Shown here is an 80-nucleotide RNA from Macaca fascicularis, a member of the family "mir-548 microRNA precursor family". Rfam links the family to the GO terms RISC complex and miRNA-mediated post-transcriptional gene silencing. Pairs were carried over by alignment from the consensus structure, which was predicted with WAR.
RNA sequence: UAUUAGGUUGGUGCACAAGUAAUUGUGGUUUUUGCCAUUACAAUGGCAAAAACCACAAUUACUUGUGCACCAACCUAAUU
Numbered sequence: 001u002a003u004u005a006g007g008u009u010g011g012u013g014c015a016c017a018a019g020u021a022a023u024u025g026u027g028g029u030u031u032u033u034g035c036c037a038u039u040a041c042a043a044u045g046g047c048a049a050a051a052a053c054c055a056c057a058a059u060u061a062c063u064u065g066u067g068c069a070c071c072a073a074c075c076u077a078a079u080u
Stems, first nucleotide, its partner, number of pairs: 002079037